[Rfam]
RNA sequence: AAGUUAUUAUUGGGGGUCAUUGUAGAAGCGUGCUUGUCACGACCCCAGCCAGCCCUUUUCAGGGCUGGAAUUCUACA
Numbered sequence: 001a002a003g004u005u006a007u008u009a010u011u012g013g014g015g016g017u018c019a020u021u022g023u024a025g026a027a028g029c030g031u032g033c034u035u036g037u038c039a040c041g042a043c044c045c046c047a048g049c050c051a052g053c054c055c056u057u058u059u060c061a062g063g064g065c066u067g068g069a070a071u072u073c074u075a076c077a
Base pairs, nucleotide, nucleotide: 013046014045015044016043017042018041021077022076023075024074025073026072027071028040030038050067051066052065053064054063055062056061

Notes
A member of the RNA family "Mammalian CPEB3 ribozyme" from Parnassius apollo, 77 nucleotides long. It scores 52 bits against the family's covariance model. NCBI's taxonomy places the organism under Eukaryota, Dicondylia, Lepidoptera, Heteroneura, Parnassius.